[Rfam]
Source information: A member of the RNA family "Iron response element I" from Trichechus manatus, 35 nucleotides long. Pairs were carried over by alignment from the consensus structure, which is taken from published work. Gene Ontology term of the family: response to iron ion. Taxonomically the source falls in Trichechus manatus (Eukaryota, Opisthokonta, Teleostomi, Theria). It is annotated as a cis-regulatory element. On this family, see Zhang et al., Insect Mol Biol 2001: "Repression of Manduca sexta ferritin synthesis by IRP1/IRE interaction".
RNA sequence: UGGUCUCCUGCUUCAACAGUGUUUGAACGGAACCG
Numbered sequence: 001u002g003g004u005c006u007c008c009u010g011c012u013u014c015a016a017c018a019g020u021g022u023u024u025g026a027a028c029g030g031a032a033c034c035g
Base pairs, nucleotide, nucleotide: 001035002034003033004032006031007030008029010028012027013026014025015024016023017021